Description
Rfam assigns this 89-nucleotide RNA sequence from Vibrio parahaemolyticus to the family "uxuA RNA". The organism belongs to Vibrio parahaemolyticus, within Bacteria.

RNA sequence: UAACCACAUUGCUGGCUUCGGUCGGCUCUAGUCAGCGCAGCUGCAUUAUCGUGGCUGCAUAUUAAGAAGUCGUUGUGCACUUAGCUUGA
Dot-bracket structure: ..........((((((....))))))..........((((((((......))))))))...............................